[Rfam]
RNA sequence: CUUCACGAGAUGUGGCCUCCGUCCGGUUUGCCGGGCAUAAAAGCUCCGACUGGCCCCACACCAACCCCAUUGUUCGGCGGGUGGUUCGGAUGACGAAGCGGCCUGCGUCAUUCGUCGCAGGCAAGGACAACCU
Numbered sequence: 001c002u003u004c005a006c007g008a009g010a011u012g013u014g015g016c017c018u019c020c021g022u023c024c025g026g027u028u029u030g031c032c033g034g035g036c037a038u039a040a041a042a043g044c045u046c047c048g049a050c051u052g053g054c055c056c057c058a059c060a061c062c063a064a065c066c067c068c069a070u071u072g073u074u075c076g077g078c079g080g081g082u083g084g085u086u087c088g089g090a091u092g093a094c095g096a097a098g099c100g101g102c103c104u105g106c107g108u109c110a111u112u113c114g115u116c117g118c119a120g121g122c123a124a125g126g127a128c129a130a131c132c133u
Stems, first nucleotide, its partner, number of pairs: 001098004009059001011058002014055003060085003065081003101122007109114001
RNA: SAM (S-adenosyl methionine) riboswitch aptamer